[Rfam]
RNA sequence: UGUGCGCGUUAACCGUAAAUUAAGCUGUCGCGCUCAGCCUCGUCUUGUCCAAACUCCGGACGCGAGUGGCUCAUCUCUUCUCCACUCGUCCUUGACGCCUCCCUGUCAUGAGCCUUGAGAGCCGCUUUCGCGGCUCUCUUUUU
Numbered sequence: 001u002g003u004g005c006g007c008g009u010u011a012a013c014c015g016u017a018a019a020u021u022a023a024g025c026u027g028u029c030g031c032g033c034u035c036a037g038c039c040u041c042g043u044c045u046u047g048u049c050c051a052a053a054c055u056c057c058g059g060a061c062g063c064g065a066g067u068g069g070c071u072c073a074u075c076u077c078u079u080c081u082c083c084a085c086u087c088g089u090c091c092u093u094g095a096c097g098c099c100u101c102c103c104u105g106u107c108a109u110g111a112g113c114c115u116u117g118a119g120a121g122c123c124g125c126u127u128u129c130g131c132g133g134c135u136c137u138c139u140u141u142u143u
Stems, first nucleotide, its partner, number of pairs: 002043003005015002021036001023034003047061004064087006094107004117138009
The record is a 143-nucleotide RNA sequence from Methylocystis parvus, which matches "Alphaproteobacterial sRNA BjrC1505" in Rfam. A reference for the family is Madhugiri et al. (2012), "Small RNAs of the Bradyrhizobium/Rhodopseudomonas lineage and their analysis", RNA Biol. Rfam classes the family as a small RNA. The organism belongs to Methylocystis, within Bacteria.